[Rfam]
Notes: A member of the RNA family "mir-196 microRNA precursor family" from Danio rerio, 77 nucleotides long. Rfam 15.1 lists 1,813 matches to the family in 642 species. The organism belongs to Danio, within Eukaryota.
RNA sequence: UCUGUGAUUUAGGUAGUUUCAAGUUGUUGGGCUGGACGUUUAAUUUCACAGGAACCUGAAACUGCCUGAAUUGCUCC
Numbered sequence: 001u002c003u004g005u006g007a008u009u010u011a012g013g014u015a016g017u018u019u020c021a022a023g024u025u026g027u028u029g030g031g032c033u034g035g036a037c038g039u040u041u042a043a044u045u046u047c048a049c050a051g052g053a054a055c056c057u058g059a060a061a062c063u064g065c066c067u068g069a070a071u072u073g074c075u076c077c
Stems, first nucleotide, its partner, number of pairs: 004074016023055003027051003031047001